[Rfam]
RNA sequence: AGCCUAUGAUGGUUUCAGAGUAGUGGACAGAAGUGAUUUCUGACAACUGCAUGCUGAGGCU
Numbered sequence: 001a002g003c004c005u006a007u008g009a010u011g012g013u014u015u016c017a018g019a020g021u022a023g024u025g026g027a028c029a030g031a032a033g034u035g036a037u038u039u040c041u042g043a044c045a046a047c048u049g050c051a052u053g054c055u056g057a058g059g060c061u
Stems, first nucleotide, its partner, number of pairs: 001061004
Rfam assigns this 61-nucleotide sequence from Ceuthmochares aereus to the family "Small nucleolar RNA SNORD75". Gene Ontology terms of the family: RNA processing and nucleolus. The organism belongs to Ceuthmochares, within Eukaryota. It scores 66 bits against the family's covariance model.